[Rfam]
RNA: U2 spliceosomal RNA
RNA sequence: AUCACUUCUCAGCCUUUUGGCUAAGAUGAUGUGUACUAUCUAUUCUUAUUAAUUUUGUAUUUGAUAACUCUUCUAACCAAGGACAAUAUCUUAAAUGGGUUUUUGGAGCAGGGAGUUGUAAUAGGAGCUUCCUGCAUCCACUCCACGCAUCGACCUGGUGUUGCAGUACCUCUAGGAAUGCUGCAACCCCU
Numbered sequence: 001a002u003c004a005c006u007u008c009u010c011a012g013c014c015u016u017u018u019g020g021c022u023a024a025g026a027u028g029a030u031g032u033g034u035a036c037u038a039u040c041u042a043u044u045c046u047u048a049u050u051a052a053u054u055u056u057g058u059a060u061u062u063g064a065u066a067a068c069u070c071u072u073c074u075a076a077c078c079a080a081g082g083a084c085a086a087u088a089u090c091u092u093a094a095a096u097g098g099g100u101u102u103u104u105g106g107a108g109c110a111g112g113g114a115g116u117u118g119u120a121a122u123a124g125g126a127g128c129u130u131c132c133u134g135c136a137u138c139c140a141c142u143c144c145a146c147g148c149a150u151c152g153a154c155c156u157g158g159u160g161u162u163g164c165a166g167u168a169c170c171u172c173u174a175g176g177a178a179u180g181c182u183g184c185a186a187c188c189c190c191u
Stems, first nucleotide, its partner, number of pairs: 007026003011022004047066006069083004112144005118138001124135001126133002147184003151180002154176005